[Rfam]
A member of the RNA family "Small nucleolar RNA SNORD116" from Cnephaeus nilssonii, 100 nucleotides long. The base pairs follow the family's consensus structure, which was predicted with PFOLD. NCBI's taxonomy places the organism under Eukaryota, Deuterostomia, Dipnotetrapodomorpha, Boreoeutheria, Cnephaeus. A reference for the family is Cavaille et al. (2000), "Identification of brain-specific and imprinted small nucleolar RNA genes exhibiting an unusual genomic organization", Proc Natl Acad Sci U S A.
RNA sequence: GGAUCGAUGAUGAUUCCCCCCAAAAAGCCAAACAACAUUCCUUGAGCUGAACAAAAUGAGUGAGAACACUACCGUCGUCGUUCUCACGAAACUGAGGUCC
Numbered sequence: 001g002g003a004u005c006g007a008u009g010a011u012g013a014u015u016c017c018c019c020c021c022a023a024a025a026a027g028c029c030a031a032a033c034a035a036c037a038u039u040c041c042u043u044g045a046g047c048u049g050a051a052c053a054a055a056a057u058g059a060g061u062g063a064g065a066a067c068a069c070u071a072c073c074g075u076c077g078u079c080g081u082u083c084u085c086a087c088g089a090a091a092c093u094g095a096g097g098u099c100c
Base pairs, nucleotide, nucleotide: 001100002099003098004097005096036062037061038060039059040058042054043053044052